[Rfam]
RNA sequence: AAGCAGGCUUUCUAGGGUUCCACGAUACAUGGAAUGGUAUCGGUUAGGUCCGAGAGGAAGCGCGUCUUGGCCAUCGGCUAAGAUGAACACGGCGGGAUAAAAACCCGGGAGUA
Numbered sequence: 001a002a003g004c005a006g007g008c009u010u011u012c013u014a015g016g017g018u019u020c021c022a023c024g025a026u027a028c029a030u031g032g033a034a035u036g037g038u039a040u041c042g043g044u045u046a047g048g049u050c051c052g053a054g055a056g057g058a059a060g061c062g063c064g065u066c067u068u069g070g071c072c073a074u075c076g077g078c079u080a081a082g083a084u085g086a087a088c089a090c091g092g093c094g095g096g097a098u099a100a101a102a103a104c105c106c107g108g109g110a111g112u113a
Stems, first nucleotide, its partner, number of pairs: 007061006015051002020048002022045001023042006063085007088108001090111001094106003
Dot-bracket structure: ......((((((..((...(((((((((........))))))..).)).))....)))))).(((((((.........)))))))..(.[...(((.......))).)..]..

The record is a 113-nucleotide sequence from Cohnella luojiensis, which matches "Guanidine-I riboswitch aptamer" in Rfam. The source organism's lineage runs through Bacteria, Bacillota, Bacilli, Paenibacillaceae and Cohnella. This family represents a conserved RNA structure found upstream of the ykkC and yxkD genes in Bacillus subtilis and related genes in other bacteria. The function of this family is unclear although it has been suggested that it may function to switch on efflux pumps and detoxification systems in response to harmful environmental molecules. For this family Rfam cites "New RNA motifs suggest an expanded scope for riboswitches in bacterial genetic control" (Barrick et al., Proc Natl Acad Sci U S A, 2004). A search with the family's covariance model found it, with a score of 78 bits.